[Rfam]
RNA sequence: AUGUUUUAUGCUUCAACAGUGUUUGAACAAAGACAU
Numbered sequence: 001a002u003g004u005u006u007u008a009u010g011c012u013u014c015a016a017c018a019g020u021g022u023u024u025g026a027a028c029a030a031a032g033a034c035a036u
Base pairs, nucleotide, nucleotide: 001036002035003034004033005032006031007030010028012027013026014025015024016023017021
Source information:
The family of this 36-nucleotide sequence from Medioppia subpectinata is "Iron response element I". A search with the family's covariance model found it, with a score of 40 bits.